A member of the RNA family "mir-932 microRNA precursor family" from Neodiprion lecontei, 81 nucleotides long.

RNA sequence: UGCUCUCUCAAUUCCGUAGUGCAUUGCAGUCGAUUGGGUCCCUCGGGAGUCCUGCAAGCACCGCGGGAGUGAGGUAGCCUC
Numbered sequence: 001u002g003c004u005c006u007c008u009c010a011a012u013u014c015c016g017u018a019g020u021g022c023a024u025u026g027c028a029g030u031c032g033a034u035u036g037g038g039u040c041c042c043u044c045g046g047g048a049g050u051c052c053u054g055c056a057a058g059c060a061c062c063g064c065g066g067g068a069g070u071g072a073g074g075u076a077g078c079c080u081c
Base pairs, nucleotide, nucleotide: 006074007073008072009071010070013067014066015065016064017063020060021059022058024057025056026055027054028053
Record summary
Gene Ontology terms of the family: miRNA-mediated post-transcriptional gene silencing and RISC complex.